The record is a 91-nucleotide RNA from Kutzneria viridogrisea, which matches "SAM riboswitch aptamer (S box leader)" in Rfam. The match comes from Rfam's covariance-model search (54 bits). The source organism's lineage runs through Bacteria, Bacillati, Actinomycetes, Pseudonocardiales and Kutzneria viridogrisea. The family has 457 seed sequences and 9,625 matches in Rfam 15.1.

RNA sequence: CAUCCAUCCCGAGCGGCCGAGAGACCUGGAUCGACGACGCCGCAGCAACCACCCGUUCGCGGGCAGGUGCUACCGCCAGGACCGAUGGAGG
Numbered sequence: 001c002a003u004c005c006a007u008c009c010c011g012a013g014c015g016g017c018c019g020a021g022a023g024a025c026c027u028g029g030a031u032c033g034a035c036g037a038c039g040c041c042g043c044a045g046c047a048a049c050c051a052c053c054c055g056u057u058c059g060c061g062g063g064c065a066g067g068u069g070c071u072a073c074c075g076c077c078a079g080g081a082c083c084g085a086u087g088g089a090g091g
Stems, first nucleotide, its partner, number of pairs: 001091001003089006013043005021032002026079004044071004049067002052062002075083001